[Rfam]
RNA: Small nucleolar RNA Z256
RNA sequence: CCUUGGCAAACUAUUUGCUGACACCAUCCACUUGGGCUUGGCUGACUAGCCUCCCCAAGUACACCAUCAUCAACAGUUGGGCCGAGCUGAAGGCCCAGUU
Numbered sequence: 001c002c003u004u005g006g007c008a009a010a011c012u013a014u015u016u017g018c019u020g021a022c023a024c025c026a027u028c029c030a031c032u033u034g035g036g037c038u039u040g041g042c043u044g045a046c047u048a049g050c051c052u053c054c055c056c057a058a059g060u061a062c063a064c065c066a067u068c069a070u071c072a073a074c075a076g077u078u079g080g081g082c083c084g085a086g087c088u089g090a091a092g093g094c095c096c097a098g099u100u
Stems, first nucleotide, its partner, number of pairs: 003098003006094002